[Rfam]
RNA sequence: GGGGGUAGGCCCGAUCCUGGGCUGUGUCCCCAGCGCCCUGUGCUCCCGGGCCUGCACUAUUGGAUUCUCGCUCCCAGCUGCGCAGCCCCCU
Numbered sequence: 001g002g003g004g005g006u007a008g009g010c011c012c013g014a015u016c017c018u019g020g021g022c023u024g025u026g027u028c029c030c031c032a033g034c035g036c037c038c039u040g041u042g043c044u045c046c047c048g049g050g051c052c053u054g055c056a057c058u059a060u061u062g063g064a065u066u067c068u069c070g071c072u073c074c075c076a077g078c079u080g081c082g083c084a085g086c087c088c089c090c091u
Stems, first nucleotide, its partner, number of pairs: 001091005009083002011080001013078001016077001019074003023070002026067001027064002030062001032058002035055002040052001042051003
RNA: mir-8799 microRNA precursor family
Organism: Canis lupus